[Rfam]
RNA sequence: ACCGCGUACUUACCUACUGUAUAGUAGCUGAUAUACAUGUAUUUUGUCUACUAUAGGCCUAUAGUAGGCGAGUACACGGUUU
Numbered sequence: 001a002c003c004g005c006g007u008a009c010u011u012a013c014c015u016a017c018u019g020u021a022u023a024g025u026a027g028c029u030g031a032u033a034u035a036c037a038u039g040u041a042u043u044u045u046g047u048c049u050a051c052u053a054u055a056g057g058c059c060u061a062u063a064g065u066a067g068g069c070g071a072g073u074a075c076a077c078g079g080u081u082u
Stems, first nucleotide, its partner, number of pairs: 001080004006075006013068003017064003020055008029046003033042003